RNA sequence: AUCUCCGGGGCGCAUUCCUCCUCCCAUUGGCGCCCCAGAGUGUUCCCCUCUGGAGGUUUUGCCGUUUUCGGCACUCCAAUCAACUCAGCCGGGUCUUUCCAGAUCCGGCUUUUUU
Dot-bracket structure: (.(((.(((((((................))))))).)))).........(((((.(...............))))))........((((((.(((....))).)))))).....
RNA: Alphaproteobacterial ar15
Organism: Pseudaminobacter soli